[Rfam]
Rfam assigns this 47-nucleotide RNA sequence from Halodesulfurarchaeum formicicum to the family "eL15-Euryarchaeota ribosomal protein leader".
For this family Rfam cites "Discovery of 20 novel ribosomal leader candidates in bacteria and archaea" (Eckert and Weinberg, BMC Microbiol, 2020).
RNA sequence: CCCGAGAUAUCGGGACGGGAUGUGACCCGAGAGGGUUGAACCACCAA
Numbered sequence: 001c002c003c004g005a006g007a008u009a010u011c012g013g014g015a016c017g018g019g020a021u022g023u024g025a026c027c028c029g030a031g032a033g034g035g036u037u038g039a040a041c042c043a044c045c046a047a
Stems, first nucleotide, its partner, number of pairs: 001014005017042002024037005